Rfam assigns this 67-nucleotide sequence from Pipistrellus kuhlii to the family "mir-9256 microRNA precursor family". Its family is annotated with RISC complex and miRNA-mediated post-transcriptional gene silencing in the Gene Ontology. NCBI's taxonomy places the organism under Eukaryota, Metazoa, Bilateria, Mammalia, Pipistrellus. A search with the family's covariance model found it, with a score of 82 bits.
RNA sequence: UACUACACUGAGUGGCCAGAUUAUUAUGAUCCCUGAAUGCAUAAUAAUCUGGCUACUCAGUGUGUGU
Numbered sequence: 001u002a003c004u005a006c007a008c009u010g011a012g013u014g015g016c017c018a019g020a021u022u023a024u025u026a027u028g029a030u031c032c033c034u035g036a037a038u039g040c041a042u043a044a045u046a047a048u049c050u051g052g053c054u055a056c057u058c059a060g061u062g063u064g065u066g067u
Base pairs, nucleotide, nucleotide: 004064005063006062007061008060009059010058011057012056013055014054015053016052017051019049020048021047022046023045024044025043026042027041028040